[Rfam]
RNA sequence: CAGGCAUGCUGGAGUCUCGCCAGCGGCGCCUGGGCGUAUGGCCAUAGGGCCCCGCCCGACACCGGACGAGACAUGA
Numbered sequence: 001c002a003g004g005c006a007u008g009c010u011g012g013a014g015u016c017u018c019g020c021c022a023g024c025g026g027c028g029c030c031u032g033g034g035c036g037u038a039u040g041g042c043c044a045u046a047g048g049g050c051c052c053c054g055c056c057c058g059a060c061a062c063c064g065g066a067c068g069a070g071a072c073a074u075g076a
Stems, first nucleotide, its partner, number of pairs: 012074001014072006024064003031058004036051001